[Rfam]
RNA: GP20-b RNA
RNA sequence: UGACCGCCCCGACGUCGUAAAACUACGGGCGACAGCGGAUGCAACCCGCGUAAAUAAGCGUA
Numbered sequence: 001u002g003a004c005c006g007c008c009c010c011g012a013c014g015u016c017g018u019a020a021a022a023c024u025a026c027g028g029g030c031g032a033c034a035g036c037g038g039a040u041g042c043a044a045c046c047c048g049c050g051u052a053a054a055u056a057a058g059c060g061u062a
Stems, first nucleotide, its partner, number of pairs: 001017004009028003035049004